This 67-nucleotide RNA sequence from Bacillus sp. MUM 13 belongs to the Rfam family "Bacillaceae-1 RNA". Taxonomically the source falls in Bacillus (Bacteria, Bacillati, Bacilli, Bacillaceae).
RNA sequence: GUCAGAGGAACAAAGACUAAAUACGCCGCGUCCUGCGGCAGCGUCUUUGUGAUCCCCAUUCUGAGGG
Numbered sequence: 001g002u003c004a005g006a007g008g009a010a011c012a013a014a015g016a017c018u019a020a021a022u023a024c025g026c027c028g029c030g031u032c033c034u035g036c037g038g039c040a041g042c043g044u045c046u047u048u049g050u051g052a053u054c055c056c057c058a059u060u061c062u063g064a065g066g067g
Base pairs, nucleotide, nucleotide: 011049012048013047014046015045016044017043025039026038027037028036029035053067054066055065057063

A search with the family's covariance model found it, with a score of 65 bits. By type it is a small RNA.